[Rfam]
RNA: Purine riboswitch aptamer
RNA sequence: AUAAAAGUAUAAAGUUUCACUCGUAUAAUAGCAGGGAUAUGGCCUGCAAGUUUCUACCGAAUUACCGUAAAUGAUUCGACUAUGGGUGAGUAAUGGAUUCUG
Numbered sequence: 001a002u003a004a005a006a007g008u009a010u011a012a013a014g015u016u017u018c019a020c021u022c023g024u025a026u027a028a029u030a031g032c033a034g035g036g037a038u039a040u041g042g043c044c045u046g047c048a049a050g051u052u053u054c055u056a057c058c059g060a061a062u063u064a065c066c067g068u069a070a071a072u073g074a075u076u077c078g079a080c081u082a083u084g085g086g087u088g089a090g091u092a093a094u095g096g097a098u099u100c101u102g
Base pairs, nucleotide, nucleotide: 018088019087020086021085022084023083024082025081029049031047032046033045034044035043058078059077060076061075062074063073064072